[Rfam]
RNA sequence: UCUAGUUCCUGACGCCUGACUCCCAGCCGAUUUGCCCUGCCACACUUCCCCGGUGGCAGGUCGACCGGAUGGGGAUCAGGAAUCAGGAGCCCUCCCUG
Numbered sequence: 001u002c003u004a005g006u007u008c009c010u011g012a013c014g015c016c017u018g019a020c021u022c023c024c025a026g027c028c029g030a031u032u033u034g035c036c037c038u039g040c041c042a043c044a045c046u047u048c049c050c051c052g053g054u055g056g057c058a059g060g061u062c063g064a065c066c067g068g069a070u071g072g073g074g075a076u077c078a079g080g081a082a083u084c085a086g087g088a089g090c091c092c093u094c095c096c097u098g
Stems, first nucleotide, its partner, number of pairs: 010085003015080002018077002021074005027068003032064003036060008
About this RNA: The family of this 98-nucleotide RNA from Microterricola viridarii is "mraW RNA". Rfam classes the family as a cis-regulatory element.